Rfam assigns this 80-nucleotide RNA from Musca domestica to the family "mir-6 microRNA precursor family".
Nucleotides: 080
Base pairs, nucleotide, nucleotide: 004077005076007074008073009072010071011070012069013068016065018063019062020061021060022059023058025056026055027054028053
Number, partner (000 for none) and nucleotide at each position: 001000a002000a003000a004077c005076a006000a007074a008073g009072a010071g011070a012069a013068u014000g015000g016065u017000g018063g019062c020061u021060g022059u023058g024000a025056u026055g027054u028053a029000u030000c031000u032000c033000a034000c035000a036000u037000a038000c039000a040000a041000u042000u043000c044000u045000c046000u047000u048000c049000u050000a051000u052000g053028u054027a055026u056025a057000u058023c059022a060021c061020a062019g063018u064000g065016g066000c067000u068013g069012u070011u071010c072009u073008u074007u075000u076005u077004g078000u079000u080000u
The family is grouped with related families in Rfam's "mir-6 clan". A search with the family's covariance model found it, with a score of 69 bits. This family consists of the microRNA (miRNA) precursor mir-6 which appears to be Drosophila specific. Pairs were carried over by alignment from the consensus structure, which was predicted with PFOLD.